[Rfam]
RNA sequence: CUACGCUGAUGAUUCACGAACUGAACUCUCUCUUUCUGAUAGUUUAGUGGAGACAGCAACAAAAAUUCUGAGUAGC
Numbered sequence: 001c002u003a004c005g006c007u008g009a010u011g012a013u014u015c016a017c018g019a020a021c022u023g024a025a026c027u028c029u030c031u032c033u034u035u036c037u038g039a040u041a042g043u044u045u046a047g048u049g050g051a052g053a054c055a056g057c058a059a060c061a062a063a064a065a066u067u068c069u070g071a072g073u074a075g076c
Stems, first nucleotide, its partner, number of pairs: 001075004
The record is a 76-nucleotide sequence from Castor canadensis, which matches "Small nucleolar RNA SNORD26" in Rfam. A search with the family's covariance model found it, with a score of 82 bits. A reference for the family is Tycowski et al. (1996), "A small nucleolar RNA requirement for site-specific ribose methylation of rRNA in Xenopus", Proc Natl Acad Sci U S A. It is annotated as a C/D-box small nucleolar RNA. Rfam 15.1 lists 451 matches to the family in 401 species. Its family is annotated with nucleolus and RNA processing in the Gene Ontology.